[Rfam]
RNA sequence: GGGUCUCUUCGCUAGACCAGAUAAGAGCCCGGGAGCUCUCUGGCUAGUGUAGAACCCAC
Numbered sequence: 001g002g003g004u005c006u007c008u009u010c011g012c013u014a015g016a017c018c019a020g021a022u023a024a025g026a027g028c029c030c031g032g033g034a035g036c037u038c039u040c041u042g043g044c045u046a047g048u049g050u051a052g053a054a055c056c057c058a059c
Stems, first nucleotide, its partner, number of pairs: 001057004006053003010049006017043005025038004

Shown here is a 59-nucleotide sequence from Lentivirus simimdef, a member of the family "Trans-activation response element (TAR)". On this family, see Klase et al., Retrovirology 2009: "HIV-1 TAR miRNA protects against apoptosis by altering cellular gene expression". NCBI's taxonomy places the organism under Viruses, Artverviricota, Revtraviricetes, Orthoretrovirinae, Lentivirus simimdef. The base pairs follow the family's consensus structure, which is taken from published work. Its family is annotated with RISC complex and miRNA-mediated post-transcriptional gene silencing in the Gene Ontology. About the family: This family represents the HIV trans-activation response (TAR) element which is known to be required for the trans-activation of the viral promoter and for virus replication. The TAR hairpin acts as a binding site for the Tat protein and this interaction stimulates the activity of the long terminal repeat promoter. Further experiments have shown that TAR acts as a miRNA that protects against apoptosis.